[Rfam]
RNA sequence: UAGAAUUCUAUGAAGAGAAAAAGUAGUUGGUAAUUAAUUUUCUUAGCGAGUGAAGGGUGGUGGAAGCUUCAUAAGAUUAUACUAAUGAAAGACAUCUCAGAGAAGUUUAUUUUAAUUUUAGUAGGAUAAAUCGGGAGCCACCGUUAUAUGGCUUUAGAGAUAAUCUUAUUUAAUGAGAUUAAUAAGGAUGGCACCGUGGGUAUAACCUCACUCCUUGC
Numbered sequence: 001u002a003g004a005a006u007u008c009u010a011u012g013a014a015g016a017g018a019a020a021a022a023g024u025a026g027u028u029g030g031u032a033a034u035u036a037a038u039u040u041u042c043u044u045a046g047c048g049a050g051u052g053a054a055g056g057g058u059g060g061u062g063g064a065a066g067c068u069u070c071a072u073a074a075g076a077u078u079a080u081a082c083u084a085a086u087g088a089a090a091g092a093c094a095u096c097u098c099a100g101a102g103a104a105g106u107u108u109a110u111u112u113u114a115a116u117u118u119u120a121g122u123a124g125g126a127u128a129a130a131u132c133g134g135g136a137g138c139c140a141c142c143g144u145u146a147u148a149u150g151g152c153u154u155u156a157g158a159g160a161u162a163a164u165c166u167u168a169u170u171u172a173a174u175g176a177g178a179u180u181a182a183u184a185a186g187g188a189u190g191g192c193a194c195c196g197u198g199g200g201u202a203u204a205a206c207c208u209c210a211c212u213c214c215u216u217g218c
Stems, first nucleotide, its partner, number of pairs: 007103002015098004026086006039075003050072006106130007132143003162180007185215004196211005

The record is a 218-nucleotide RNA sequence from Clostridium paridis, which matches "T-box leader" in Rfam. It scores 139 bits against the family's covariance model. Rfam's curators write: Uncharged tRNA acts as the effector for transcription antitermination of genes in the T-box leader family. T-boxes are found upstream of many aminoacyl-tRNA synthetase genes and some amino acid biosynthetic genes usually in Gram-positive bacteria. Taxonomically the source falls in Clostridium (Bacteria, Bacillota, Clostridia, Clostridiaceae).